[Rfam]
RNA sequence: GGUGUUUUCAUGAAGACCACUAACAAAAGAGUACCACACUCAGUUGGUGAUCAGAUGUUUUCUAUACU
Numbered sequence: 001g002g003u004g005u006u007u008u009c010a011u012g013a014a015g016a017c018c019a020c021u022a023a024c025a026a027a028a029g030a031g032u033a034c035c036a037c038a039c040u041c042a043g044u045u046g047g048u049g050a051u052c053a054g055a056u057g058u059u060u061u062c063u064a065u066a067c068u
Stems, first nucleotide, its partner, number of pairs: 001068005015052002018049007030040003